[Rfam]
RNA sequence: GCUCUCUGUCAGUUUUGCAUCGUUGCACCACAAGAAAAACAGUUGUGCAAAUCUAUGCAAAACUGACGGCGGAC
Numbered sequence: 001g002c003u004c005u006c007u008g009u010c011a012g013u014u015u016u017g018c019a020u021c022g023u024u025g026c027a028c029c030a031c032a033a034g035a036a037a038a039a040c041a042g043u044u045g046u047g048c049a050a051a052u053c054u055a056u057g058c059a060a061a062a063c064u065g066a067c068g069g070c071g072g073a074c
Stems, first nucleotide, its partner, number of pairs: 003072002006069014023050006030043002